Eukaryotic large subunit ribosomal RNA: a 474-nucleotide part of an RNA from Erpetoichthys calabaricus. Taxonomically the source falls in Erpetoichthys (Eukaryota, Opisthokonta, Teleostomi, Actinopterygii). It scores 2760 bits against the family's covariance model.

RNA sequence: CGGGUGGGGUCCGCGCAGUCCGCCCGGGGGAUUCAACCCGGCGGGGUAAGGCAGGCCGGCUCGGUGCGGGAGGAUCCCCUCGCGGGACCUCUCCCCGGCUCGUCGGCUGGCCCCCGCCGGGCGCAUUUCCUCCGCGGCGGUGCGCCGCGACCGGCUCCGGACCGGCCAGGAAGGGCCCGGGGGCGAAGGUGGCUCGCGGCCCCGGCCGCGAGCUUUACAGCGCCCCUCCGCCUGGACUUCGUCGCUCUCCGGGGCCGUGGAACUCUGUGCUCACUGCGCCCUCUCUCCCCUCCCCCCUCGGGGGGUGGGGAGGGACGGGGCCCCCUCGCCCCCGGCGCGGCUGUCGACCGGGGCGGACUGUCCUCAGUGCGCUCCCGACCGCGCCGCGCCGCCAGGGCGGGGACCGGCCCACGUCAAAGGCGCAAGGGGUCUGCGGCGAUGUCGGCUACCCACCCGACCCGUCUUGAAACACGG
Numbered sequence: 001c002g003g004g005u006g007g008g009g010u011c012c013g014c015g016c017a018g019u020c021c022g023c024c025c026g027g028g029g030g031a032u033u034c035a036a037c038c039c040g041g042c043g044g045g046g047u048a049a050g051g052c053a054g055g056c057c058g059g060c061u062c063g064g065u066g067c068g069g070g071a072g073g074a075u076c077c078c079c080u081c082g083c084g085g086g087a088c089c090u091c092u093c094c095c096c097g098g099c100u101c102g103u104c105g106g107c108u109g110g111c112c113c114c115c116g117c118c119g120g121g122c123g124c125a126u127u128u129c130c131u132c133c134g135c136g137g138c139g140g141u142g143c144g145c146c147g148c149g150a151c152c153g154g155c156u157c158c159g160g161a162c163c164g165g166c167c168a169g170g171a172a173g174g175g176c177c178c179g180g181g182g183g184c185g186a187a188g189g190u191g192g193c194u195c196g197c198g199g200c201c202c203c204g205g206c207c208g209c210g211a212g213c214u215u216u217a218c219a220g221c222g223c224c225c226c227u228c229c230g231c232c233u234g235g236a237c238u239u240c241g242u243c244g245c246u247c248u249c250c251g252g253g254g255c256c257g258u259g260g261a262a263c264u265c266u267g268u269g270c271u272c273a274c275u276g277c278g279c280c281c282u283c284u285c286u287c288c289c290c291u292c293c294c295c296c297c298u299c300g301g302g303g304g305g306u307g308g309g310g311a312g313g314g315a316c317g318g319g320g321c322c323c324c325c326u327c328g329c330c331c332c333c334g335g336c337g338c339g340g341c342u343g344u345c346g347a348c349c350g351g352g353g354c355g356g357a358c359u360g361u362c363c364u365c366a367g368u369g370c371g372c373u374c375c376c377g378a379c380c381g382c383g384c385c386g387c388g389c390c391g392c393c394a395g396g397g398c399g400g401g402g403a404c405c406g407g408c409c410c411a412c413g414u415c416a417a418a419g420g421c422g423c424a425a426g427g428g429g430u431c432u433g434c435g436g437c438g439a440u441g442u443c444g445g446c447u448a449c450c451c452a453c454c455c456g457a458c459c460c461g462u463c464u465u466g467a468a469a470c471a472c473g474g
Stems, first nucleotide, its partner, number of pairs: 001456008012445001020073002023070004078438001080436007459474004
Dot-bracket structure: ((((((((...(.......((.((((........................................)))).))....(.(((((((.......................................................................................................................................................................................................................................................................................................................................................))))))).)......)...))))))))..((((........))))